[Rfam]
RNA sequence: AGGUACCAAUUUUCUUGGGUCCGGCAUCAGGACCCAAGGCUAAUGGGUCCUGCAUCAGGACCCAAUUCUCUUGGGUUCAACGUCAGGACCCGAGGUUCUUGGAUCUU
Dot-bracket structure: (((..((((...((((((((((.(.....((((((((......(((((((.......)))))))......)))))))).....).))))))))))...))))..)))
MIR6450 microRNA precursor family: a 107-nucleotide RNA sequence from Populus deltoides. The family has 2 seed sequences and 53 matches in Rfam 15.1.